Shown here is a 99-nucleotide sequence from Triticum aestivum, a member of the family "MIR2275 microRNA precursor family".
RNA sequence: GCACUGAAAGUGAGUGUUGGAGGAAAGCAAACUGGGAAAUCCGUCUCAACAGUGCUGAUGUUUCCAGUUUGUUUUUCUCCAAUAUCUCAUUUUCGGUAG
Numbered sequence: 001g002c003a004c005u006g007a008a009a010g011u012g013a014g015u016g017u018u019g020g021a022g023g024a025a026a027g028c029a030a031a032c033u034g035g036g037a038a039a040u041c042c043g044u045c046u047c048a049a050c051a052g053u054g055c056u057g058a059u060g061u062u063u064c065c066a067g068u069u070u071g072u073u074u075u076u077c078u079c080c081a082a083u084a085u086c087u088c089a090u091u092u093u094c095g096g097u098a099g
Stems, first nucleotide, its partner, number of pairs: 004096005011089004016083006023076008032067006
Dot-bracket structure: ...(((((..((((.((((((.((((((((.((((((........................)))))).)))))))).))))))..))))..)))))...
Its family is annotated with RISC complex and miRNA-mediated post-transcriptional gene silencing in the Gene Ontology.
Lineage of the source: Eukaryota > Euphyllophyta > Magnoliopsida > Mesangiospermae > Triticum.
A search with the family's covariance model found it, with a score of 76 bits.